[Rfam]
Record summary
The record is a 49-nucleotide RNA sequence from Phytoamicus setariae, which matches "Guanidine-II riboswitch aptamer (mini-ykkC)" in Rfam. The source organism's lineage runs through Bacteria, Pseudomonadati, Alphaproteobacteria, Rhizobiaceae and Phytoamicus. The match comes from Rfam's covariance-model search (36 bits). Rfam 15.1 lists 1,589 matches to the family in 1,229 species. Pairs were carried over by alignment from the consensus structure, which is taken from published work.
RNA sequence: GCGUGAGGACGACCUCCCCCAGAUGGGCAACAAACUCGGGACGACCCGA
Numbered sequence: 001g002c003g004u005g006a007g008g009a010c011g012a013c014c015u016c017c018c019c020c021a022g023a024u025g026g027g028c029a030a031c032a033a034a035c036u037c038g039g040g041a042c043g044a045c046c047c048g049a
Stems, first nucleotide, its partner, number of pairs: 001020001003018001005016004036049005